[Rfam]
RNA sequence: GCACCCAAGUCUUUCCCAUGCCUUGUGGAACCCACGCAGGCUUGGGGACAUGGGGGUGCUAGAGUGAAGUACGGGCAAUCCAGAAAAGCCACAACAACAACAACAACAACAACACCCCGGACAGAGGGCUUUUCUCUACACCUUUGCAACACCC
Numbered sequence: 001g002c003a004c005c006c007a008a009g010u011c012u013u014u015c016c017c018a019u020g021c022c023u024u025g026u027g028g029a030a031c032c033c034a035c036g037c038a039g040g041c042u043u044g045g046g047g048a049c050a051u052g053g054g055g056g057u058g059c060u061a062g063a064g065u066g067a068a069g070u071a072c073g074g075g076c077a078a079u080c081c082a083g084a085a086a087a088g089c090c091a092c093a094a095c096a097a098c099a100a101c102a103a104c105a106a107c108a109a110c111a112a113c114a115c116c117c118c119g120g121a122c123a124g125a126g127g128g129c130u131u132u133u134c135u136c137u138a139c140a141c142c143u144u145u146g147c148a149a150c151a152c153c154c
Stems, first nucleotide, its partner, number of pairs: 001059005013048006021040002069147003073143002082135008